Shown here is a 112-nucleotide RNA from Planotetraspora silvatica, a member of the family "TPP riboswitch aptamer (THI element)".

[Rfam]
RNA sequence: CGUAAGACGCGCGGGAGCCCGGCAGGCCGGGCUGAGAGGAGAGCGUGAGGCUCUCGACCGCAAUCGACCUGAUCCGGGUAAUGCCGGCGAAGGGAGCGCAGUGCCUGAUCUG
Numbered sequence: 001c002g003u004a005a006g007a008c009g010c011g012c013g014g015g016a017g018c019c020c021g022g023c024a025g026g027c028c029g030g031g032c033u034g035a036g037a038g039g040a041g042a043g044c045g046u047g048a049g050g051c052u053c054u055c056g057a058c059c060g061c062a063a064u065c066g067a068c069c070u071g072a073u074c075c076g077g078g079u080a081a082u083g084c085c086g087g088c089g090a091a092g093g094g095a096g097c098g099c100a101g102u103g104c105c106u107g108a109u110c111u112g
Stems, first nucleotide, its partner, number of pairs: 008098003011061004017032005039055005068093003074087004
The source organism's lineage runs through Bacteria, Bacillati, Actinomycetes, Streptosporangiaceae and Planotetraspora.